[Rfam]
RNA sequence: UUUUCGUCUGUACUAAUGAGGAUGAGAACCUCCGAAGGAGGUUAGAGCCGAGCGUAGCGAGACAACGUUGCGCUUCAGCAACGGCCCGCAGGGCGGCUCGAAGAGCCGUAAUCCUCUCUCGCCGACCA
Numbered sequence: 001u002u003u004u005c006g007u008c009u010g011u012a013c014u015a016a017u018g019a020g021g022a023u024g025a026g027a028a029c030c031u032c033c034g035a036a037g038g039a040g041g042u043u044a045g046a047g048c049c050g051a052g053c054g055u056a057g058c059g060a061g062a063c064a065a066c067g068u069u070g071c072g073c074u075u076c077a078g079c080a081a082c083g084g085c086c087c088g089c090a091g092g093g094c095g096g097c098u099c100g101a102a103g104a105g106c107c108g109u110a111a112u113c114c115u116c117u118c119u120c121g122c123c124g125a126c127c128a
Base pairs, nucleotide, nucleotide: 015119018116019115020114021113023111033095034094042090045087049059050058066083067082068081069080070079071078

Description: A member of the RNA family "RtT RNA" from Erwinia sorbitola, 128 nucleotides long. It is annotated as a cis-regulatory element. Gene Ontology term of the family: cellular response to amino acid starvation. A reference for the family is Bosl and Kersten (1991), "A novel RNA product of the tyrT operon of Escherichia coli", Nucleic Acids Res. About the family: This family represents a bacterial cis-regulatory element known as RtT RNA. The exact function of RtT is unknown although it is thought that it may be involved in changing the cellular response in relation to amino acid starvation. The match comes from Rfam's covariance-model search (78 bits).